Shown here is a 165-nucleotide RNA sequence from Photobacterium proteolyticum, a member of the family "DABA-DC-AT RNA". Rfam classes the family as a cis-regulatory element.
[Rfam]
Nucleotides: 165
Stems, first nucleotide, its partner, number of pairs: 006027005034070008044060001046058001079101010
Number, partner (000 for none) and nucleotide at each position: 001000g002000c003000a004000a005000u006027c007026u008025c009024a010023g011000g012000g013000g014000g015000c016000a017000g018000u019000a020000u021000u022000a023010c024009u025008g026007a027006g028000a029000c030000a031000u032000a033000u034070g035069c036068g037067u038066u039065g040064u041063g042000a043000u044060g045000a046058a047000u048000u049000c050000a051000g052000g053000c054000u055000g056000a057000u058046u059000g060044u061000g062000u063041c064040a065039c066038a067037a068036c069035g070034u071000g072000c073000c074000g075000u076000a077000g078000g079101u080100a081099c082098u083097g084096g085095c086094g087093a088092a089000c090000c091000u092088u093087u094086c095085g096084u097083c098082a099081g100080u101079a102000g103000a104000a105000g106000g107000g108000c109000a110000u111000u112000a113000a114000u115000a116000g117000c118000g119000c120000g121000g122000a123000c124000c125000u126000g127000c128000c129000a130000c131000c132000a133000a134000a135000u136000a137000g138000a139000g140000c141000a142000g143000g144000a145000g146000c147000a148000u149000a150000u151000u152000g153000a154000a155000g156000g157000a158000a159000c160000c161000c162000a163000a164000c165000a